[Rfam]
RNA sequence: AGCUUUGCGCAGUGGCAGUGCAGUAUCAUAGCCAAUGAGGUUAACCGAGGCGUGAUUAUUGCUAGUUGAAAACUUUUCCCAAUACCCCGCCAUGAUGACUUGAAAUACAGCAGCAUUGGCAAUUUUUGACAGGCUCUCAGGAGG
Numbered sequence: 001a002g003c004u005u006u007g008c009g010c011a012g013u014g015g016c017a018g019u020g021c022a023g024u025a026u027c028a029u030a031g032c033c034a035a036u037g038a039g040g041u042u043a044a045c046c047g048a049g050g051c052g053u054g055a056u057u058a059u060u061g062c063u064a065g066u067u068g069a070a071a072a073c074u075u076u077u078c079c080c081a082a083u084a085c086c087c088c089g090c091c092a093u094g095a096u097g098a099c100u101u102g103a104a105a106u107a108c109a110g111c112a113g114c115a116u117u118g119g120c121a122a123u124u125u126u127u128g129a130c131a132g133g134c135u136c137u138c139a140g141g142a143g144g
Stems, first nucleotide, its partner, number of pairs: 025056005031051003039046002089120003092116003096112002100107001134143003

The family of this 144-nucleotide RNA sequence from Hymenochirus boettgeri is "U4 spliceosomal RNA". A reference for the family is Zwieb (1997), "The uRNA database", Nucleic Acids Res. Rfam 15.1 lists 32,178 matches to the family in 2,547 species. By type it is a spliceosomal small nuclear RNA. U4 small nuclear RNA (U4 snRNA) is a component of the major U2-dependent spliceosome. The source organism's lineage runs through Eukaryota, Metazoa, Deuterostomia, Chordata and Hymenochirus.